A member of the RNA family "chrB-b RNA" from a Comamonadaceae bacterium, 56 nucleotides long. The base pairs follow the family's consensus structure, which is taken from published work. The match comes from Rfam's covariance-model search (46 bits). The family's RNA type in Rfam is cis-regulatory element.

[Rfam]
RNA sequence: UCGGGAACACAGCCUCCCGAUCCUUCCGGAAAGACGGUGUCCCGUCCAAGCGCUGG
Numbered sequence: 001u002c003g004g005g006a007a008c009a010c011a012g013c014c015u016c017c018c019g020a021u022c023c024u025u026c027c028g029g030a031a032a033g034a035c036g037g038u039g040u041c042c043c044g045u046c047c048a049a050g051c052g053c054u055g056g
Stems, first nucleotide, its partner, number of pairs: 001020006010055004033046005